[Rfam]
RNA sequence: ACUAUCAUGGGAUGCUGAACCGUUGCCCGUGGUCGGUCACUUGGGUGACGGCGAGCCAACAGUGAGACCGACCUUAAGUAGG
Number, nucleotide and partner (000 for none) at each position: 001a000002c081003u080004a079005u078006c000007a000008u000009g074010g073011g072012a000013u000014g056015c055016u000017g000018a000019a000020c051021c050022g049023u048024u047025g046026c045027c044028c000029g000030u000031g000032g000033u000034c000035g069036g068037u065038c064039a063040c062041u061042u000043g000044g027045g026046u025047g024048a023049c022050g021051g020052c000053g000054a000055g015056c014057c000058a000059a000060c000061a041062g040063u039064g038065a037066g000067a000068c036069c035070g000071a000072c011073c010074u009075u000076a000077a000078g005079u004080a003081g002082g000
Notes:
c-di-GMP-II-GAG riboswitch aptamer: an 82-nucleotide RNA. The base pairs follow the family's consensus structure, which is taken from published work.